[Rfam]
Record summary: Shown here is a 126-nucleotide sequence from Pelomicrobium methylotrophicum, a member of the family "SAH (S-adenosyl-L-homocysteine) riboswitch aptamer".

RNA sequence: CCCACUGAGGAGCGCUGCGACCCGACCACCAAAAGGGCGUAGAUUGCGGUUUUGCAUUCCAGCGAAAAGCUGCAGCCCUUUUGGUGGUCGGGCCAGGCUCAGGGUAAUCAACGGCGCUCGCAUCUC
Numbered sequence: 001c002c003c004a005c006u007g008a009g010g011a012g013c014g015c016u017g018c019g020a021c022c023c024g025a026c027c028a029c030c031a032a033a034a035g036g037g038c039g040u041a042g043a044u045u046g047c048g049g050u051u052u053u054g055c056a057u058u059c060c061a062g063c064g065a066a067a068a069g070c071u072g073c074a075g076c077c078c079u080u081u082u083g084g085u086g087g088u089c090g091g092g093c094c095a096g097g098c099u100c101a102g103g104g105u106a107a108u109c110a111a112c113g114g115c116g117c118u119c120g121c122a123u124c125u126c
Stems, first nucleotide, its partner, number of pairs: 002104002005102004021092018
Rfam 15.1 lists 1,354 matches to the family in 1,132 species.